The family of this 62-nucleotide RNA from Odocoileus virginianus is "U7 small nuclear RNA". Animal histone pre-mRNAs are spliced by a different mechanism than nuclear pre-mRNAs and self-splicing introns. This processing involves the U7 snRNP, which contains only one RNA species: U7. The 5' end of U7 RNA is thought to base-pair to a conserved spacer element downstream of the cleavage site in histone pre-mRNA. This family contains a number of annotated U7 pseudogenes.
RNA sequence: GAGUGUAACAGCUCUUUCACAACUUGUCUAGCAAGUUUUCUGGUCCACACUGGAAAACACUC
Numbered sequence: 001g002a003g004u005g006u007a008a009c010a011g012c013u014c015u016u017u018c019a020c021a022a023c024u025u026g027u028c029u030a031g032c033a034a035g036u037u038u039u040c041u042g043g044u045c046c047a048c049a050c051u052g053g054a055a056a057a058c059a060c061u062c
Stems, first nucleotide, its partner, number of pairs: 035058010